[Rfam]
Notes
Plastid-psbA-4 3UTR RNA: a 60-nucleotide RNA from Solanum tuberosum. The base pairs follow the family's consensus structure, which was predicted with LocARNA. Plastid psbA-4 is a non-coding RNA (ncRNA) present in plastids. It was identified in inverted repeat sequences in the 3 prime untranslate region (3UTR) of photosystem II quinone-binding protein (psbA). By type it is a cis-regulatory element.
RNA sequence: CCAAAAAAGGAGCAAUAGCACCUUCUUGAUAGAACAAGAAAAUUAUUAUUGCUCCUUUUC
Dot-bracket structure: .....((((((((((((..(..((((((......))))))..)...))))))))))))..